[Rfam]
About this RNA:
Shown here is a 102-nucleotide sequence from Acanthosepion pharaonis, a member of the family "Small nucleolar RNA SNORD16". The literature on the family includes a 1993 paper in EMBO J by Fragapane et al., "A novel small nucleolar RNA (U16) is encoded inside a ribosomal protein intron and originates by processing of the pre-mRNA". The family's RNA type in Rfam is C/D-box small nucleolar RNA.

RNA sequence: UGCAAUGAUGCUGUAAUUUGCGUCUGAUGGCACAAUGCAGUGAUGGUUGCCUGCCAUCAUAAUACUGCAUGUAUCAAUUGACGAAACAAACUUUACUGAGCA
Dot-bracket structure: (((.................((((.......(((.....(((((((.......))))).....))....))).......))))................)))
Source information
Lineage of the source: Eukaryota > Lophotrochozoa > Cephalopoda > Coleoidea > Acanthosepion. The match comes from Rfam's covariance-model search (70 bits).